A member of the RNA family "c-di-AMP riboswitch aptamer (ydaO/yuaA leader)" from Sphaerimonospora thailandensis, 141 nucleotides long. Taxonomically the source falls in Sphaerimonospora (Bacteria, Bacillati, Streptosporangiales, Streptosporangiaceae). The match comes from Rfam's covariance-model search (48 bits).
RNA sequence: GGUGCACGGCCGCCGACUCCGCGCCUCGCGGAGCCGGGGACCACCCCUCGGGUGAAUCGGAGCGCGUCCCCCCCAAGCGCGCCGUAGGGCGCUUCCGCCCGAACCCGUCAGCUGUCCCGGUAGGCGGCAUGGAAGCAAGGA
Numbered sequence: 001g002g003u004g005c006a007c008g009g010c011c012g013c014c015g016a017c018u019c020c021g022c023g024c025c026u027c028g029c030g031g032a033g034c035c036g037g038g039g040a041c042c043a044c045c046c047c048u049c050g051g052g053u054g055a056a057u058c059g060g061a062g063c064g065c066g067u068c069c070c071c072c073c074c075a076a077g078c079g080c081g082c083c084g085u086a087g088g089g090c091g092c093u094u095c096c097g098c099c100c101g102a103a104c105c106c107g108u109c110a111g112c113u114g115u116c117c118c119g120g121u122a123g124g125c126g127g128c129a130u131g132g133a134a135g136c137a138a139g140g141a
Stems, first nucleotide, its partner, number of pairs: 011126004018032005033121006050106003058084003087100004